[Rfam]
RNA sequence: AAAUAGCCCUGACAGCAGCGGUAUCUUUUUUGCGGCUCCGUAGUGGAAUGAUCCUGCUAUGGUAGUGCAAAAAAAUAAAGCGAAUGGCAGGAACAGGG
Numbered sequence: 001a002a003a004u005a006g007c008c009c010u011g012a013c014a015g016c017a018g019c020g021g022u023a024u025c026u027u028u029u030u031u032g033c034g035g036c037u038c039c040g041u042a043g044u045g046g047a048a049u050g051a052u053c054c055u056g057c058u059a060u061g062g063u064a065g066u067g068c069a070a071a072a073a074a075a076u077a078a079a080g081c082g083a084a085u086g087g088c089a090g091g092a093a094c095a096g097g098g
Base pairs, nucleotide, nucleotide: 009090010089011088013086014085018081019080023076024075026073029071030070031069032068033067035066036065037064
RNA: Flavo-1 RNA
Organism: Flavobacterium kingsejongi